RNA sequence: AGAGUUGGCGAGGUAGUUGCAGUUCUUGGUGUCUUGUCACCUUGAAUUGAGGAAAGUCCGGGCUUCCAAAGACCAAACUGCUGGGUAACGCCCAGUGCGGGUGACCGUGAGGAAAGUGCCACAGAAAAAUACCGCCGUAGAAGAUCAAUCUUCUGCGGUAAGGGUGCAAAGGUGCGGUAAGAGCGCACCAGCAGCAUCGAGAGGUGCUGGCUCGGUAAACCCCAGUUGGAAGCAAGGUCGAGGGAAGCUAUGGUUGGUCUUUUACCAGCUUCCGAUGUAAGGGAGUACCGCUUGAGGCUUUUGGUAACAAAAGUCCCAGAUAGAUAACUACCCUCAAGUGUAUCUUGAGAACAGAACCCGGCUUAUGUCCAACUCUCUUU
Numbered sequence: 001a002g003a004g005u006u007g008g009c010g011a012g013g014u015a016g017u018u019g020c021a022g023u024u025c026u027u028g029g030u031g032u033c034u035u036g037u038c039a040c041c042u043u044g045a046a047u048u049g050a051g052g053a054a055a056g057u058c059c060g061g062g063c064u065u066c067c068a069a070a071g072a073c074c075a076a077a078c079u080g081c082u083g084g085g086u087a088a089c090g091c092c093c094a095g096u097g098c099g100g101g102u103g104a105c106c107g108u109g110a111g112g113a114a115a116g117u118g119c120c121a122c123a124g125a126a127a128a129a130u131a132c133c134g135c136c137g138u139a140g141a142a143g144a145u146c147a148a149u150c151u152u153c154u155g156c157g158g159u160a161a162g163g164g165u166g167c168a169a170a171g172g173u174g175c176g177g178u179a180a181g182a183g184c185g186c187a188c189c190a191g192c193a194g195c196a197u198c199g200a201g202a203g204g205u206g207c208u209g210g211c212u213c214g215g216u217a218a219a220c221c222c223c224a225g226u227u228g229g230a231a232g233c234a235a236g237g238u239c240g241a242g243g244g245a246a247g248c249u250a251u252g253g254u255u256g257g258u259c260u261u262u263u264a265c266c267a268g269c270u271u272c273c274g275a276u277g278u279a280a281g282g283g284a285g286u287a288c289c290g291c292u293u294g295a296g297g298c299u300u301u302u303g304g305u306a307a308c309a310a311a312a313g314u315c316c317c318a319g320a321u322a323g324a325u326a327a328c329u330a331c332c333c334u335c336a337a338g339u340g341u342a343u344c345u346u347g348a349g350a351a352c353a354g355a356a357c358c359c360g361g362c363u364u365a366u367g368u369c370c371a372a373c374u375c376u377c378u379u380u
Stems, first nucleotide, its partner, number of pairs: 001376008011366001012332007020049006028041004054364003058361005063232004071261002076227005081095005096110001097108004111222002116220002118216003132163002134159011171189006191211001192209007236289003243273006252266003256262001296315008
RNA: Bacterial RNase P class A
Organism: Halothece sp. PCC 7418